The family of this 68-nucleotide RNA sequence from Peribacillus faecalis is "Bacillaceae-1 RNA". Rfam classes the family as a small RNA.
RNA sequence: AAGUAAUGAACAUUGGCUAAAGACGCCACGUCCGAAUGUCUUCGCCGAUAUGACCUACAUCCUGUAGG
Numbered sequence: 001a002a003g004u005a006a007u008g009a010a011c012a013u014u015g016g017c018u019a020a021a022g023a024c025g026c027c028a029c030g031u032c033c034g035a036a037u038g039u040c041u042u043c044g045c046c047g048a049u050a051u052g053a054c055c056u057a058c059a060u061c062c063u064g065u066a067g068g
Stems, first nucleotide, its partner, number of pairs: 012049006025040001027038002054068005